Description:
The record is a 111-nucleotide RNA sequence from Azotobacter vinelandii, which matches "Pseudomon-1/ErsA RNA" in Rfam. A reference for the family is Zhang et al. (2017), "Probing the sRNA regulatory landscape of P. aeruginosa: post-transcriptional control of determinants of pathogenicity and antibiotic susceptibility", Mol Microbiol. It is one of the family's seed sequences. The source organism's lineage runs through Bacteria, Pseudomonadota, Pseudomonadales, Azotobacter and Azotobacter vinelandii. Rfam classes the family as a small RNA. Pairs were carried over by alignment from the consensus structure, which is taken from published work.
RNA sequence: AUGCUCCUUGUUGUGUUAAGUGUUGGCAGAUAUUCGGACUCUUCGGGGUCCGGAGUUGAACCCCGGGCUUCUUCCUCCCCCACACGAAGUCCGGGUUUUUUUUGCCCGGAA
Numbered sequence: 001a002u003g004c005u006c007c008u009u010g011u012u013g014u015g016u017u018a019a020g021u022g023u024u025g026g027c028a029g030a031u032a033u034u035c036g037g038a039c040u041c042u043u044c045g046g047g048g049u050c051c052g053g054a055g056u057u058g059a060a061c062c063c064c065g066g067g068c069u070u071c072u073u074c075c076u077c078c079c080c081c082a083c084a085c086g087a088a089g090u091c092c093g094g095g096u097u098u099u100u101u102u103u104g105c106c107c108g109g110a111a
Stems, first nucleotide, its partner, number of pairs: 033054008058098003062095010